About this RNA: The family of this 64-nucleotide sequence from Horornis vulcanius is "MAT2A 3'UTR stem loop F". Rfam 15.1 lists 403 matches to the family in 255 species. Taxonomically the source falls in Horornis (Eukaryota, Gnathostomata, Dipnotetrapodomorpha, Aves). The family's RNA type in Rfam is cis-regulatory element.
[Rfam]
RNA sequence: CCUGGGCAUGGCGCUGGUGGCCGGUGUGGUACAGAGAAGCCGGCUUGUUUACUGCCUGCCCAGG
Numbered sequence: 001c002c003u004g005g006g007c008a009u010g011g012c013g014c015u016g017g018u019g020g021c022c023g024g025u026g027u028g029g030u031a032c033a034g035a036g037a038a039g040c041c042g043g044c045u046u047g048u049u050u051a052c053u054g055c056c057u058g059c060c061c062a063g064g
Base pairs, nucleotide, nucleotide: 001064002063003062004061005060006059007058010056011055012054013049015047019045020044021043022042023041024040025039026032027031
The match comes from Rfam's covariance-model search (53 bits).